RNA sequence: GGUAGGGCUCGAAAGGAGUGAAGCCCUCCGAAGGAAAGGAGCGCAAGCUCCGAGUACGAGGAGGGUGGACCGGGGUCCUACCUUUCGUCUUGAAACACGG
Numbered sequence: 001g002g003u004a005g006g007g008c009u010c011g012a013a014a015g016g017a018g019u020g021a022a023g024c025c026c027u028c029c030g031a032a033g034g035a036a037a038g039g040a041g042c043g044c045a046a047g048c049u050c051c052g053a054g055u056a057c058g059a060g061g062a063g064g065g066u067g068g069a070c071c072g073g074g075g076u077c078c079u080a081c082c083u084u085u086c087g088u089c090u091u092g093a094a095a096c097a098c099g100g
Stems, first nucleotide, its partner, number of pairs: 001082010015071002023066007033057001038051005085100004
The record is a 100-nucleotide part of an RNA from Acidianus hospitalis, which matches "Archaeal large subunit ribosomal RNA" in Rfam.
The family's consensus secondary structure is taken from published work.
The source organism's lineage runs through Archaea, Thermoproteota, Sulfolobales, Sulfolobaceae and Acidianus hospitalis.